[Rfam]
Nucleotides: 103
Base pairs, nucleotide, nucleotide: 007090008089009088010087011053012052013051014050017026018025019024033046034045035044036043037042059084060083061082062081065078066077067076068075
Number, partner (000 for none) and nucleotide at each position: 001000g002000a003000u004000c005000g006000a007090c008089a009088c010087u011053a012052g013051g014050g015000g016000a017026g018025c019024c020000g021000c022000a023000a024019g025018g026017c027000u028000g029000a030000g031000a032000u033046g034045a035044a036043u037042c038000g039000a040000a041000a042037g043036a044035u045034u046033c047000g048000g049000a050014c051013c052012c053011u054000u055000u056000g057000a058000a059084c060083c061082u062081g063000a064000a065078c066077g067076g068075g069000u070000u071000a072000a073000g074000a075068c076067c077066u078065g079000c080000g081062u082061a083060g084059g085000g086000a087010a088009g089008u090007g091000g092000a093000g094000a095000g096000u097000a098000a099000a100000g101000c102000a103000u
The family of this 103-nucleotide RNA sequence from Paenibacillus sp. oral taxon 786 is "TPP riboswitch aptamer (THI element)". A search with the family's covariance model found it, with a score of 74 bits. NCBI's taxonomy places the organism under Bacteria, Bacillati, Bacillota, Bacilli, Paenibacillus sp. oral taxon 786. Rfam's curators write: Vitamin B(1) in its active form thiamin pyrophosphate (TPP) is an essential coenzyme that is synthesised by coupling of pyrimidine and thiazole moieties in bacteria.